[Rfam]
Record summary
A member of the RNA family "ylbH leader" from Gracilibacillus halotolerans, 128 nucleotides long. From the family's description: This family is a putative regulatory RNA structure that is found upstream of the ylbH gene in B. subtilis and related low GC Gram-positive bacteria. A search with the family's covariance model found it, with a score of 84 bits. On this family, see Barrick et al., Proc Natl Acad Sci U S A 2004: "New RNA motifs suggest an expanded scope for riboswitches in bacterial genetic control". The source organism's lineage runs through Bacteria, Bacillati, Bacillota, Bacillaceae and Gracilibacillus. Pairs were carried over by alignment from the consensus structure.
Nucleotides: 128
Base pairs, nucleotide, nucleotide: 011037012036013035014034015033016032017031018030019029038076039075040074041073042072045062046061047060048059049058050057088125089124090123091122094120095119096118098117099116100115101114102113
Number, partner (000 for none) and nucleotide at each position: 001000a002000g003000a004000c005000a006000a007000a008000a009000a010000a011037a012036c013035c014034u015033g016032c017031a018030g019029u020000u021000c022000a023000u024000u025000a026000a027000u028000a029019a030018c031017u032016g033015c034014a035013g036012g037011u038076u039075c040074u041073u042072u043000u044000u045062a046061u047060u048059a049058c050057c051000a052000c053000u054000g055000a056000u057050g058049g059048u060047a061046a062045u063000a064000a065000a066000a067000a068000g069000a070000u071000a072042a073041a074040g075039g076038g077000a078000g079000a080000g081000g082000a083000g084000a085000a086000a087000c088125c089124g090123g091122a092000g093000u094120a095119a096118g097000g098117a099116c100115u101114u102113a103000u104000g105000g106000g107000g108000a109000a110000a111000u112000g113102u114101a115100a116099g117098u118096c119095u120094u121000c122091u123090c124089c125088g126000u127000u128000u